[Rfam]
RNA sequence: GGUUCGGGAGCCGCGCGGUGGGACGCGCGGCACGAAUGGAACCUCACCCCUGCUAUUCGUAUGCCGCAUCCGGGGGCCCCGACCCGCAUGCC
Numbered sequence: 001g002g003u004u005c006g007g008g009a010g011c012c013g014c015g016c017g018g019u020g021g022g023a024c025g026c027g028c029g030g031c032a033c034g035a036a037u038g039g040a041a042c043c044u045c046a047c048c049c050c051u052g053c054u055a056u057u058c059g060u061a062u063g064c065c066g067c068a069u070c071c072g073g074g075g076g077c078c079c080c081g082a083c084c085c086g087c088a089u090g091c092c
Stems, first nucleotide, its partner, number of pairs: 001043005010031008066091004071086004